This 81-nucleotide RNA from Dictyostelium discoideum belongs to the Rfam family "mir-7131 microRNA precursor family". Pairs were carried over by alignment from the consensus structure, which was predicted with RNAalifold. Gene Ontology terms of the family: miRNA-mediated post-transcriptional gene silencing and RISC complex.
[Rfam]
RNA sequence: UAUGGCUGCUGAAAUUAAUAUGGUAAUUCUAGCAGACAUAAGUCCCAUGCCAAAACUAUCAUAUUAAUUUCAGCAUCCAUU
Numbered sequence: 001u002a003u004g005g006c007u008g009c010u011g012a013a014a015u016u017a018a019u020a021u022g023g024u025a026a027u028u029c030u031a032g033c034a035g036a037c038a039u040a041a042g043u044c045c046c047a048u049g050c051c052a053a054a055a056c057u058a059u060c061a062u063a064u065u066a067a068u069u070u071c072a073g074c075a076u077c078c079a080u081u
Base pairs, nucleotide, nucleotide: 002080003079004078005077007075008074009073010072011071012070013069014068015067016066017065018064019063020062021061022060023059024058025057027055028054030052032050033049034048035044036043037042